[Rfam]
RNA sequence: GCGCUCAUCAUUUUUGUGAUUGGUGCAAUUGUGCACCCGCGAAUUGCAUAGUCACAAAAGUGAUGGGUGC
Numbered sequence: 001g002c003g004c005u006c007a008u009c010a011u012u013u014u015u016g017u018g019a020u021u022g023g024u025g026c027a028a029u030u031g032u033g034c035a036c037c038c039g040c041g042a043a044u045u046g047c048a049u050a051g052u053c054a055c056a057a058a059a060g061u062g063a064u065g066g067g068u069g070c
Stems, first nucleotide, its partner, number of pairs: 002069005008063013024048007

The record is a 70-nucleotide RNA sequence from Haemaphysalis longicornis, which matches "mir-153 microRNA precursor family" in Rfam. It scores 59 bits against the family's covariance model. Rfam 15.1 lists 1,565 matches to the family in 711 species.